RNA sequence: UGGGUGGUAUUAGAAUAAACCACACCAUUAAAUUUAUAUUUGGUUAUUUUUAUUAGACAGCUCAUAUCAUUAAGAAUGAGACUAAAAU
Numbered sequence: 001u002g003g004g005u006g007g008u009a010u011u012a013g014a015a016u017a018a019a020c021c022a023c024a025c026c027a028u029u030a031a032a033u034u035u036a037u038a039u040u041u042g043g044u045u046a047u048u049u050u051u052a053u054u055a056g057a058c059a060g061c062u063c064a065u066a067u068c069a070u071u072a073a074g075a076a077u078g079a080g081a082c083u084a085a086a087a088u
Base pairs, nucleotide, nucleotide: 001027002026003025004023005022006021007020008019010018011017059083060082061080062079063078064077065076067075068074
A member of the RNA family "pan motif" from Clostridium chauvoei, 88 nucleotides long. The family's RNA type in Rfam is cis-regulatory element.